[Rfam]
RNA: FMN riboswitch aptamer (RFN element)
Organism: Lysinibacillus sp. BF-4
Nucleotides: 117
Stems, first nucleotide, its partner, number of pairs: 003115008017029003031097002033087002035048004043085002053061001067083005089100003
Number, partner (000 for none) and nucleotide at each position: 001000g002000u003115u004114u005113u006112c007111c008110u009109u010108c011000g012000g013000g014000g015000u016000c017029g018028g019027g020000u021000g022000u023000a024000a025000g026000u027019c028018c029017c030000a031097a032096c033087c034086g035048g036047c037046g038045g039000u040000a041000u042000a043085g044084c045038c046037c047036g048035c049000g050000a051000g052000c053061u054000c055000u056000u057000u058000g059000g060000a061053g062000c063000a064000g065000g066000a067083u068082u069081u070080g071079g072000u073000g074000a075000a076000a077000u078000u079071c080070c081069a082068g083067a084044g085043c086034c087033g088000a089100c090099a091098g092000u093000a094000c095000a096032g097031u098091c099090u100089g101000g102000a103000u104000g105000a106000g107000a108010g109009a110008a111007g112006g113005a114004a115003g116000u117000g